[Rfam]
RNA: Small nucleolar RNA SNORA28
Organism: Nannospalax galili
RNA sequence: GAGCUGCAGGAAAGAGUCAAAUGAACAAAACUAUCUGACACAAUUUCAGCUUGCUAUAACAAGAAAGUCUAACCUAUUCCAGUGUUUUUUUUCCACAUGAGACAACACUUUAUAUAGGCUCAAACAAU
Numbered sequence: 001g002a003g004c005u006g007c008a009g010g011a012a013a014g015a016g017u018c019a020a021a022u023g024a025a026c027a028a029a030a031c032u033a034u035c036u037g038a039c040a041c042a043a044u045u046u047c048a049g050c051u052u053g054c055u056a057u058a059a060c061a062a063g064a065a066a067g068u069c070u071a072a073c074c075u076a077u078u079c080c081a082g083u084g085u086u087u088u089u090u091u092u093c094c095a096c097a098u099g100a101g102a103c104a105a106c107a108c109u110u111u112a113u114a115u116a117g118g119c120u121c122a123a124a125c126a127a128u
Stems, first nucleotide, its partner, number of pairs: 014041001016039001018037002021034003066120006075114003081109004089102004